[Rfam]
RNA sequence: AAGGGUCAAGUGAGGAAUAAUAAUGCAUAGUUCAGAUGAUCACCAUGAUUACAAAUCUGAAGCAUAGUCUUUCGCUCCUAUCUGAUGACCCAA
Numbered sequence: 001a002a003g004g005g006u007c008a009a010g011u012g013a014g015g016a017a018u019a020a021u022a023a024u025g026c027a028u029a030g031u032u033c034a035g036a037u038g039a040u041c042a043c044c045a046u047g048a049u050u051a052c053a054a055a056u057c058u059g060a061a062g063c064a065u066a067g068u069c070u071u072u073c074g075c076u077c078c079u080a081u082c083u084g085a086u087g088a089c090c091c092a093a
Base pairs, nucleotide, nucleotide: 004090005089006088007087008086
Small nucleolar RNA snR60/Z15/Z230/Z193/J17: a 93-nucleotide RNA sequence from Brassica oleracea. NCBI's taxonomy places the organism under Eukaryota, Streptophyta, Streptophytina, Magnoliopsida, Brassica oleracea. By type it is a C/D-box small nucleolar RNA. Its Rfam clan is "SNORD77 clan".